[Rfam]
RNA sequence: GCUCCCUUAGCUCAGCUGGAUAGAGCAGCUGCCUUCUAAGCAGCCGGUCGUUGGUUCGAAUCCAACAGGGGGCG
Numbered sequence: 001g002c003u004c005c006c007u008u009a010g011c012u013c014a015g016c017u018g019g020a021u022a023g024a025g026c027a028g029c030u031g032c033c034u035u036c037u038a039a040g041c042a043g044c045c046g047g048u049c050g051u052u053g054g055u056u057c058g059a060a061u062c063c064a065a066c067a068g069g070g071g072g073c074g
Stems, first nucleotide, its partner, number of pairs: 001073007010026004028044005050066005